[Rfam]
Actinobacteria sRNA Ms_AS-4: an 82-nucleotide RNA sequence from Phytohabitans flavus.
The family's RNA type in Rfam is small RNA.
Pairs were carried over by alignment from the consensus structure.
It scores 61 bits against the family's covariance model.
Rfam 15.1 lists 207 matches to the family in 131 species.
A reference for the family is Li et al. (2013), "Identification of small RNAs in Mycobacterium smegmatis using heterologous Hfq", RNA.
RNA sequence: UCUUGCGUCGGCGUAACGCUGUUUGUCGUCGCCGAACUCGGCGAGCACCCGGGCGCCGAGCACGACGCCAAGGCCGGGCUGG
Numbered sequence: 001u002c003u004u005g006c007g008u009c010g011g012c013g014u015a016a017c018g019c020u021g022u023u024u025g026u027c028g029u030c031g032c033c034g035a036a037c038u039c040g041g042c043g044a045g046c047a048c049c050c051g052g053g054c055g056c057c058g059a060g061c062a063c064g065a066c067g068c069c070a071a072g073g074c075c076g077g078g079c080u081g082g
Base pairs, nucleotide, nucleotide: 008044009043010042012040013039018038021037022036023035024034025033027031055079056078057077060075063072